[Rfam]
A member of the RNA family "Bacterial large subunit ribosomal RNA", 600 nucleotides of a longer RNA. It scores 927 bits against the family's covariance model. For this family Rfam cites "Crystal structure of the ribosome at 5.5 A resolution" (Yusupov et al., Science, 2001).

RNA sequence: CACGAAGACCCUAUGAAGCUUUACUGUAGUUAAUUAUUGUUAAUUUUUUAUUAAGAUACAGCAAUAAGGUAGUUGAUUAAACAAAACUGAGAGCCCUUAACUUAAUAUAAAAUUAACUAAGAUUGUAUUCAAUCUUUAUAUUACCCCUCCCUUGUACCUUAUAAGUAAAGGUCCCAAAGGUUUUUAAUCUUCGGGAUCUUAUAGGUUGGGAUAUAUAGGGUUAUUGAAUAUUCUUCCUUGGUUUUAUCAAGGACCUGGAAAAUUUUAUAAAAUAAUAGCAAUAUUAAUUAUAAAGGGCCCCAAAGGGAAAAUGAUUAAUUGGCAGUUUACCUGGGGCGGGAUUCUCAUAAAUAGUAUCUGAGAAGUACAAAGGUUUGUUUAAAUUGGAUGGAAACCAAUGGGUUUAUGAUAACCUAAUAAAGCGUAAUGGUAUAAACAAGCUUAACUGUAAGACAAAAAAGUCGAACAGACGCGUAAGCGGGUCAUAGUGAUCCGAUAGUUUCAUUAUGGAAUGGCUAUCGCACAACUGAUAAAAGUUACUCUAGGGAUAACAGGCUAGUCACUGACGAGAGUCCAUAUUGACUCAGUGGUCCGGCACCU
Numbered sequence: 001c002a003c004g005a006a007g008a009c010c011c012u013a014u015g016a017a018g019c020u021u022u023a024c025u026g027u028a029g030u031u032a033a034u035u036a037u038u039g040u041u042a043a044u045u046u047u048u049u050a051u052u053a054a055g056a057u058a059c060a061g062c063a064a065u066a067a068g069g070u071a072g073u074u075g076a077u078u079a080a081a082c083a084a085a086a087c088u089g090a091g092a093g094c095c096c097u098u099a100a101c102u103u104a105a106u107a108u109a110a111a112a113u114u115a116a117c118u119a120a121g122a123u124u125g126u127a128u129u130c131a132a133u134c135u136u137u138a139u140a141u142u143a144c145c146c147c148u149c150c151c152u153u154g155u156a157c158c159u160u161a162u163a164a165g166u167a168a169a170g171g172u173c174c175c176a177a178a179g180g181u182u183u184u185u186a187a188u189c190u191u192c193g194g195g196a197u198c199u200u201a202u203a204g205g206u207u208g209g210g211a212u213a214u215a216u217a218g219g220g221u222u223a224u225u226g227a228a229u230a231u232u233c234u235u236c237c238u239u240g241g242u243u244u245u246a247u248c249a250a251g252g253a254c255c256u257g258g259a260a261a262a263u264u265u266u267a268u269a270a271a272a273u274a275a276u277a278g279c280a281a282u283a284u285u286a287a288u289u290a291u292a293a294a295g296g297g298c299c300c301c302a303a304a305g306g307g308a309a310a311a312u313g314a315u316u317a318a319u320u321g322g323c324a325g326u327u328u329a330c331c332u333g334g335g336g337c338g339g340g341a342u343u344c345u346c347a348u349a350a351a352u353a354g355u356a357u358c359u360g361a362g363a364a365g366u367a368c369a370a371a372g373g374u375u376u377g378u379u380u381a382a383a384u385u386g387g388a389u390g391g392a393a394a395c396c397a398a399u400g401g402g403u404u405u406a407u408g409a410u411a412a413c414c415u416a417a418u419a420a421a422g423c424g425u426a427a428u429g430g431u432a433u434a435a436a437c438a439a440g441c442u443u444a445a446c447u448g449u450a451a452g453a454c455a456a457a458a459a460a461g462u463c464g465a466a467c468a469g470a471c472g473c474g475u476a477a478g479c480g481g482g483u484c485a486u487a488g489u490g491a492u493c494c495g496a497u498a499g500u501u502u503c504a505u506u507a508u509g510g511a512a513u514g515g516c517u518a519u520c521g522c523a524c525a526a527c528u529g530a531u532a533a534a535a536g537u538u539a540c541u542c543u544a545g546g547g548a549u550a551a552c553a554g555g556c557u558a559g560u561c562a563c564u565g566a567c568g569a570g571a572g573u574c575c576a577u578a579u580u581g582a583c584u585c586a587g588u589g590g591u592c593c594g595g596c597a598c599c600u
Stems, first nucleotide, its partner, number of pairs: 010546004015542002017538005023326004030318007039117009049107007065099005072082003330340003342364006365527001367483002373441006379421002422431002446469004452463003471480003494521007503514002555596003559593001560590007570580002